This 107-nucleotide RNA sequence from Kaistia sp. 32K belongs to the Rfam family "Rhizobiales sRNA Atu_At1". NCBI's taxonomy places the organism under Bacteria, Pseudomonadati, Pseudomonadota, Hyphomicrobiales, Kaistia. The family's RNA type in Rfam is small RNA. The literature on the family includes a 2012 paper in RNA Biol by Wilms et al., "Deep sequencing uncovers numerous small RNAs on all four replicons of the plant pathogen Agrobacterium tumefaciens".

[Rfam]
RNA sequence: ACACGUCGCGCGUCAACCGGACGCGGCGGCAGAGGGAACAGGGCGAUUUUUCCGGUUUCUCGACCUGGCCAACGAAACGGCAGCCGAGCCUUUAUCCCGCCCGCGAC
Numbered sequence: 001a002c003a004c005g006u007c008g009c010g011c012g013u014c015a016a017c018c019g020g021a022c023g024c025g026g027c028g029g030c031a032g033a034g035g036g037a038a039c040a041g042g043g044c045g046a047u048u049u050u051u052c053c054g055g056u057u058u059c060u061c062g063a064c065c066u067g068g069c070c071a072a073c074g075a076a077a078c079g080g081c082a083g084c085c086g087a088g089c090c091u092u093u094a095u096c097c098c099g100c101c102c103g104c105g106a107c
Stems, first nucleotide, its partner, number of pairs: 006106004011023004025101003028097002033092004039067004044062002068081003